[Rfam]
A member of the RNA family "BsrF" from Oceanobacillus sp. J11TS1, 109 nucleotides long. The organism belongs to Oceanobacillus, within Bacteria. On this family, see Saito et al., Gene 2008: "Novel small RNA-encoding genes in the intergenic regions of Bacillus subtilis". The family's RNA type in Rfam is small RNA.
RNA sequence: GCGAUGAGCUGAUUUGUGUAAGACGAAGGAUGCAAUUCAUGUGGAUGUGAACACAUGGUCUUUCGCCACAAAUUUCGUAAAGACACUUGUACUUAAAUGUAUAGGUGUC
Numbered sequence: 001g002c003g004a005u006g007a008g009c010u011g012a013u014u015u016g017u018g019u020a021a022g023a024c025g026a027a028g029g030a031u032g033c034a035a036u037u038c039a040u041g042u043g044g045a046u047g048u049g050a051a052c053a054c055a056u057g058g059u060c061u062u063u064c065g066c067c068a069c070a071a072a073u074u075u076c077g078u079a080a081a082g083a084c085a086c087u088u089g090u091a092c093u094u095a096a097a098u099g100u101a102u103a104g105g106u107g108u109c
Stems, first nucleotide, its partner, number of pairs: 014071005024065008038057002041054003082109011